[Rfam]
RNA sequence: GAGCCGCAUCAAGAGUCGGGCCGACGCCUGACGCCAACCUGCUCCCGGGCAAGGUGGCGCCCUUCCGCUUCCGGGAGGGGAUGUGGCCGGACCGGCAACAAACGGGUUUCGC
Numbered sequence: 001g002a003g004c005c006g007c008a009u010c011a012a013g014a015g016u017c018g019g020g021c022c023g024a025c026g027c028c029u030g031a032c033g034c035c036a037a038c039c040u041g042c043u044c045c046c047g048g049g050c051a052a053g054g055u056g057g058c059g060c061c062c063u064u065c066c067g068c069u070u071c072c073g074g075g076a077g078g079g080g081a082u083g084u085g086g087c088c089g090g091a092c093c094g095g096c097a098a099c100a101a102a103c104g105g106g107u108u109u110c111g112c
Stems, first nucleotide, its partner, number of pairs: 006084005015032001017030005033058003038054003041050003086096004
A member of the RNA family "SAM-I/IV (S-adenosyl methionine) riboswitch aptamer" from Methylobacterium sp. Leaf99, 112 nucleotides long. The base pairs follow the family's consensus structure, which is taken from published work. The match comes from Rfam's covariance-model search (48 bits). Rfam links the family to the GO terms S-adenosylmethionine metabolic process and regulation of gene expression. The organism belongs to Methylobacterium, within Bacteria.